[Rfam]
RNA sequence: CAGGCAGGGUGUAUCGGUCGCUCUCUUCGGAGGGAGGAAAGUCCGGACUCCGCAGGGCAGGACGUCCCGUGGUUAACGCGGGAACCCAUGUGCCAGAUCGCAUGGGAUGGAAAGUGCCGCAGAAAAUAUACCGCCGUCACGCGUUGCGGGGCGGUAAGGGUGAAAUGGUGGUGGUAAGAGCCCACCGGGCCAAAGGCAACGAUGGUCGCAUGGUAAACCCCGUCCGGAGCAAGAUCAAAUAGGCGACGAUGAUGCUGCCCGCAUCGCUAUUAGUCGCGGGUUGAACGCACUAGAUAAAUGACCGACUCCGCGAGGAGAACAGAAUCCGGCUUACCGCCCUGCUUGUUUU
Numbered sequence: 001c002a003g004g005c006a007g008g009g010u011g012u013a014u015c016g017g018u019c020g021c022u023c024u025c026u027u028c029g030g031a032g033g034g035a036g037g038a039a040a041g042u043c044c045g046g047a048c049u050c051c052g053c054a055g056g057g058c059a060g061g062a063c064g065u066c067c068c069g070u071g072g073u074u075a076a077c078g079c080g081g082g083a084a085c086c087c088a089u090g091u092g093c094c095a096g097a098u099c100g101c102a103u104g105g106g107a108u109g110g111a112a113a114g115u116g117c118c119g120c121a122g123a124a125a126a127u128a129u130a131c132c133g134c135c136g137u138c139a140c141g142c143g144u145u146g147c148g149g150g151g152c153g154g155u156a157a158g159g160g161u162g163a164a165a166u167g168g169u170g171g172u173g174g175u176a177a178g179a180g181c182c183c184a185c186c187g188g189g190c191c192a193a194a195g196g197c198a199a200c201g202a203u204g205g206u207c208g209c210a211u212g213g214u215a216a217a218c219c220c221c222g223u224c225c226g227g228a229g230c231a232a233g234a235u236c237a238a239a240u241a242g243g244c245g246a247c248g249a250u251g252a253u254g255c256u257g258c259c260c261g262c263a264u265c266g267c268u269a270u271u272a273g274u275c276g277c278g279g280g281u282u283g284a285a286c287g288c289a290c291u292a293g294a295u296a297a298a299u300g301a302c303c304g305a306c307u308c309c310g311c312g313a314g315g316a317g318a319a320c321a322g323a324a325u326c327c328g329g330c331u332u333a334c335c336g337c338c339c340u341g342c343u344u345g346u347u348u349u
Stems, first nucleotide, its partner, number of pairs: 001345010011334001014305006021034005039332003043329005048229004055260004060225005065083007084108001085106008109220002114218002116214003131159002133155006140148002167186005173181001187209001188207005195200001233286001235284002243277005251265005
Shown here is a 349-nucleotide RNA from Pontiella desulfatans, a member of the family "Bacterial RNase P class A". It scores 230 bits against the family's covariance model.